[Rfam]
RNA sequence: ACCAACUAAGAAUUGGGAGUGCAUUCCAUUUUUUAUUUUUGGUUCCUCUCAGCGCUCAUAGAGAAAUCGUUAAGUUUUCGGGU
Numbered sequence: 001a002c003c004a005a006c007u008a009a010g011a012a013u014u015g016g017g018a019g020u021g022c023a024u025u026c027c028a029u030u031u032u033u034u035a036u037u038u039u040u041g042g043u044u045c046c047u048c049u050c051a052g053c054g055c056u057c058a059u060a061g062a063g064a065a066a067u068c069g070u071u072a073a074g075u076u077u078u079c080g081g082g083u
Stems, first nucleotide, its partner, number of pairs: 001083003004076003009056002013052007023043002061068002
RNA: Eukaryotic small subunit ribosomal RNA, nucleotides 1206 to 1288